[Rfam]
RNA sequence: UAGAAUAAUGUCGCAUGCCGUCGUAUAAAAUUGGGGAUAUGGCCCAAUAGUUUCUACCAAGCCGCCGUAAAGGGCUUGACUACGAGGUAAGUGUAAAUGGAA
Numbered sequence: 001u002a003g004a005a006u007a008a009u010g011u012c013g014c015a016u017g018c019c020g021u022c023g024u025a026u027a028a029a030a031u032u033g034g035g036g037a038u039a040u041g042g043c044c045c046a047a048u049a050g051u052u053u054c055u056a057c058c059a060a061g062c063c064g065c066c067g068u069a070a071a072g073g074g075c076u077u078g079a080c081u082a083c084g085a086g087g088u089a090a091g092u093g094u095a096a097a098u099g100g101a102a
Stems, first nucleotide, its partner, number of pairs: 019087001021085005030048006058078006